This 86-nucleotide RNA from Sporosarcina sp. Marseille-Q4063 belongs to the Rfam family "c-di-GMP-I riboswitch aptamer". The match comes from Rfam's covariance-model search (65 bits). NCBI's taxonomy places the organism under Bacteria, Bacillati, Bacillota, Bacilli, Sporosarcina. Pairs were carried over by alignment from the consensus structure, which is taken from published work.
RNA sequence: CUCUCAUAUGGGCAAACUUAUCGAAAGUUAAGUACGCAAAGUCAAGGGCCUAAUACAUUUAUUUGUAACGGCAGCCGUUUACCGAG
Numbered sequence: 001c002u003c004u005c006a007u008a009u010g011g012g013c014a015a016a017c018u019u020a021u022c023g024a025a026a027g028u029u030a031a032g033u034a035c036g037c038a039a040a041g042u043c044a045a046g047g048g049c050c051u052a053a054u055a056c057a058u059u060u061a062u063u064u065g066u067a068a069c070g071g072c073a074g075c076c077g078u079u080u081a082c083c084g085a086g
Stems, first nucleotide, its partner, number of pairs: 012037002017032004022027001040080002043077001046076002048072003055066003